[Rfam]
RNA sequence: CGGUAUGUAGCGCAGUUUGGUAGCGCACUGCUCUGGGGGAUCAGGGGUCGUAGGUUCAAAUCCUAUUAUACCGA
Numbered sequence: 001c002g003g004u005a006u007g008u009a010g011c012g013c014a015g016u017u018u019g020g021u022a023g024c025g026c027a028c029u030g031c032u033c034u035g036g037g038g039g040a041u042c043a044g045g046g047g048u049c050g051u052a053g054g055u056u057c058a059a060a061u062c063c064u065a066u067u068a069u070a071c072c073g074a
Base pairs, nucleotide, nucleotide: 001073002072003071004070005069006068007067010026011025012024013023028044029043030042032040050066051065052064053063054062
The record is a 74-nucleotide RNA from Psychromonas sp. PRT-SC03, which matches "tRNA" in Rfam. The organism belongs to Psychromonas, within Bacteria. It scores 54 bits against the family's covariance model.